Annotation:
Shown here is a 95-nucleotide RNA from Hemiprocne comata, a member of the family "Small nucleolar RNA SNORD35". The family's RNA type in Rfam is C/D-box small nucleolar RNA.
RNA sequence: CGGUGGUGAUGUCUGAUCUCACGAUGGUCUGCAGAGACCCCCCCCAACCCAGGGGGGCUGCUGACAACGCCAGCGGCAACGGCUGAACCGUGGGA
Numbered sequence: 001c002g003g004u005g006g007u008g009a010u011g012u013c014u015g016a017u018c019u020c021a022c023g024a025u026g027g028u029c030u031g032c033a034g035a036g037a038c039c040c041c042c043c044c045c046a047a048c049c050c051a052g053g054g055g056g057g058c059u060g061c062u063g064a065c066a067a068c069g070c071c072a073g074c075g076g077c078a079a080c081g082g083c084u085g086a087a088c089c090g091u092g093g094g095a
Stems, first nucleotide, its partner, number of pairs: 001090004
From the family's description: U35 is a C/D box snoRNA located in intron 6 of ribosomal protein L13A and intron 3 of ribosomal protein S11 in humans and at homologous positions in mouse and chicken ribosomal protein genes. U35 guides the methylation of 2'-O-ribose sites in 28S rRNA. Its family is annotated with RNA processing and nucleolus in the Gene Ontology. The family has 8 seed sequences and 1,842 matches in Rfam 15.1. Lineage of the source: Eukaryota > Deuterostomia > Euteleostomi > Sauropsida > Hemiprocne.